[Rfam]
RNA sequence: UUUGUUAAGCAGAAACGAGCCGUUUCUCACCUUAUGGCACUGCUAAUAAGGUAAGUGAAUUAAUCCUUUGUGUUGUAUUGUAAUUUAGGACGGCUUGUACCGUCCUUUUUUUAAUGU
Numbered sequence: 001u002u003u004g005u006u007a008a009g010c011a012g013a014a015a016c017g018a019g020c021c022g023u024u025u026c027u028c029a030c031c032u033u034a035u036g037g038c039a040c041u042g043c044u045a046a047u048a049a050g051g052u053a054a055g056u057g058a059a060u061u062a063a064u065c066c067u068u069u070g071u072g073u074u075g076u077a078u079u080g081u082a083a084u085u086u087a088g089g090a091c092g093g094c095u096u097g098u099a100c101c102g103u104c105c106u107u108u109u110u111u112u113a114a115u116g117u
Base pairs, nucleotide, nucleotide: 011027012026013025014024015023016022029052030051031050034047035046037043038042089104090103091102092101093100
RNA: Ribosomal protein L20 leader